This 52-nucleotide RNA sequence from Citreicella sp. SE45 belongs to the Rfam family "ffh sRNA". Rfam's curators put it in the seed alignment. The family's RNA type in Rfam is small RNA. For this family Rfam cites "Identification of candidate structured RNAs in the marine organism 'Candidatus Pelagibacter ubique'" (Meyer et al., BMC Genomics, 2009). The source organism's lineage runs through Bacteria, Pseudomonadati, Alphaproteobacteria, Rhodobacterales and Citreicella.

RNA sequence: UAUGCCCGGGAUCGCCCUCCGUCAGCGCGUUGCGCCCACGGGGGCUGUUUCG
Number, nucleotide and partner (000 for none) at each position: 001u000002a000003u000004g000005c000006c000007c000008g000009g000010g000011a000012u000013c000014g000015c000016c044017c043018u042019c041020c040021g039022u038023c000024a000025g035026c034027g033028c032029g000030u000031u000032g028033c027034g026035c025036c000037c000038a022039c021040g020041g019042g018043g017044g016045c000046u000047g000048u000049u000050u000051c000052g000